[Rfam]
Nucleotides: 049
Base pairs, nucleotide, nucleotide: 002019003018004017005016006015007014008013037048038047039046040045
Number, partner (000 for none) and nucleotide at each position: 001000u002019c003018g004017c005016c006015g007014g008013g009000a010000c011000g012000a013008c014007c015006c016005g017004g018003u019002g020000u021000a022000c023000g024000a025000c026000c027000u028000c029000u030000u031000c032000a033000u034000a035000c036000c037048g038047g039046g040045g041000a042000c043000g044000a045040c046039c047038c048037c049000a
Record summary:
The family of this 49-nucleotide sequence from Halomonas chromatireducens is "Guanidine-II riboswitch aptamer (mini-ykkC)". Rfam describes the family as follows. Simpler in structure and has fewer highly conserved nucleotide positions than the ykkC-yxkD leader. Despite this each of its two stem-loop structures directly bind free guanidine. Therefore, mini-ykkC RNA motif represents a distinct class of guanidine-sensing RNAs. Pairs were carried over by alignment from the consensus structure, which is taken from published work.